[Rfam]
RNA sequence: UUAUAAGAAACAAUUGACUUUUAGAUUUAUUGAAUAACUGAUGUAUCUGGUCUGUAAUAUAGACCAAAUGCAUCAAUUAUUCAAUGAAUCUAAAAAGUCAACUGUUUCUUAUAA
Numbered sequence: 001u002u003a004u005a006a007g008a009a010a011c012a013a014u015u016g017a018c019u020u021u022u023a024g025a026u027u028u029a030u031u032g033a034a035u036a037a038c039u040g041a042u043g044u045a046u047c048u049g050g051u052c053u054g055u056a057a058u059a060u061a062g063a064c065c066a067a068a069u070g071c072a073u074c075a076a077u078u079a080u081u082c083a084a085u086g087a088a089u090c091u092a093a094a095a096a097g098u099c100a101a102c103u104g105u106u107u108c109u110u111a112u113a114a
Stems, first nucleotide, its partner, number of pairs: 002113006009106004015100004019095006026088012039075005048066004
RNA: MIR2593 microRNA precursor family